[Rfam]
RNA: c-di-AMP riboswitch aptamer (ydaO/yuaA leader)
Organism: Actinopolymorpha singaporensis
RNA sequence: GCUUAGUCUCCGCCGGCCAAACCGGAGGAGAGCCGGGGACCCAGGUUUCCCGGGGUGAAUCGGCGGCCCUGGCGGUCACGUUGGACCGGCUGGACCACCGUAGGGCGGCUUCCCGGCCCGAACCCGUCAGCUGACCCGGUAGGCGUCUAGGAGAAGGGGC
Number, nucleotide and partner (000 for none) at each position: 001g144002c143003u142004u000005a000006g000007u031008c030009u029010c028011c027012g000013c000014c000015g000016g000017c000018c000019a000020a000021a000022c000023c000024g000025g000026a000027g011028g010029a009030g008031a007032g140033c139034c138035g137036g136037g135038g000039a000040c000041c000042c052043a000044g000045g000046u000047u000048u000049c000050c000051c000052g042053g125054g124055g123056u000057g000058a000059a000060u000061c100062g099063g098064c000065g000066g000067c000068c000069c000070u000071g000072g000073c000074g000075g000076u000077c000078a000079c000080g000081u000082u000083g000084g000085a000086c000087c000088g000089g000090c000091u000092g000093g000094a000095c000096c000097a000098c063099c062100g061101u000102a000103g119104g118105g117106c116107g000108g000109c000110u000111u000112c000113c000114c000115g000116g106117c105118c104119c103120g000121a000122a000123c055124c054125c053126g000127u000128c000129a000130g000131c000132u000133g000134a000135c037136c036137c035138g034139g033140u032141a000142g003143g002144c001145g000146u000147c000148u000149a000150g000151g000152a000153g000154a000155a000156g000157g000158g000159g000160c000